[Rfam]
RNA sequence: GAAGAUAGCAGCAAUUCUUAUUGUGGUGGGACAGCGCAUGGGCAGGAUGGUGUAACCAUCCGGCGACAGCCACCCAUGCGCUAGACAAGAGGCUCCCCAAGGGGCCUUUUUUUAUGCCUGAAA
Numbered sequence: 001g002a003a004g005a006u007a008g009c010a011g012c013a014a015u016u017c018u019u020a021u022u023g024u025g026g027u028g029g030g031a032c033a034g035c036g037c038a039u040g041g042g043c044a045g046g047a048u049g050g051u052g053u054a055a056c057c058a059u060c061c062g063g064c065g066a067c068a069g070c071c072a073c074c075c076a077u078g079c080g081c082u083a084g085a086c087a088a089g090a091g092g093c094u095c096c097c098c099a100a101g102g103g104g105c106c107u108u109u110u111u112u113u114a115u116g117c118c119u120g121a122a123a
Stems, first nucleotide, its partner, number of pairs: 009026001029119002032116001033082010045061006063070002087108001090107007
Rhizobiales sRNA Atu_C8: a 123-nucleotide sequence from Rhizobium metallidurans. The match comes from Rfam's covariance-model search (119 bits). The family's consensus secondary structure was predicted with CMfinder.